[Rfam]
RNA sequence: GGUAGCUUGGCCGAGUGGCCGAAGGCAACGGGUUGCUAACCCGUACAGUCGAAAGGCUGCGUAGGUUCGAAUCCUACAGCUACCG
Numbered sequence: 001g002g003u004a005g006c007u008u009g010g011c012c013g014a015g016u017g018g019c020c021g022a023a024g025g026c027a028a029c030g031g032g033u034u035g036c037u038a039a040c041c042c043g044u045a046c047a048g049u050c051g052a053a054a055g056g057c058u059g060c061g062u063a064g065g066u067u068c069g070a071a072u073c074c075u076a077c078a079g080c081u082a083c084c085g
Stems, first nucleotide, its partner, number of pairs: 001084007010026003028044005061077005
RNA: tRNA
Organism: Massilia violaceinigra